[Rfam]
RNA sequence: GAAUCCGUCGACUUGGUUGUGAAAUGUGUGAUUUUGUUUAGGUUCCAUAUCACAGCCAUUUUGACGAGUUUUA
Numbered sequence: 001g002a003a004u005c006c007g008u009c010g011a012c013u014u015g016g017u018u019g020u021g022a023a024a025u026g027u028g029u030g031a032u033u034u035u036g037u038u039u040a041g042g043u044u045c046c047a048u049a050u051c052a053c054a055g056c057c058a059u060u061u062u063g064a065c066g067a068g069u070u071u072u073a
Stems, first nucleotide, its partner, number of pairs: 006066006014058009025049003

Description:
Shown here is a 73-nucleotide RNA sequence from Megaselia scalaris, a member of the family "mir-2 microRNA precursor family". The literature on the family includes a 2001 paper in Science by Lee and Ambros, "An extensive class of small RNAs in Caenorhabditis elegans".